[Rfam]
RNA sequence: GGAGCAGAUGACGAUAAAACAGACAGGGACAUCUGUACCUGUUAAAACAGGGUUGAUGACUGGUCUUGGGAAUCUCUCUGAUGCUUC
Numbered sequence: 001g002g003a004g005c006a007g008a009u010g011a012c013g014a015u016a017a018a019a020c021a022g023a024c025a026g027g028g029a030c031a032u033c034u035g036u037a038c039c040u041g042u043u044a045a046a047a048c049a050g051g052g053u054u055g056a057u058g059a060c061u062g063g064u065c066u067u068g069g070g071a072a073u074c075u076c077u078c079u080g081a082u083g084c085u086u087c
Base pairs, nucleotide, nucleotide: 002086003085004084005083006082
RNA: Small nucleolar RNA R44/J54/Z268 family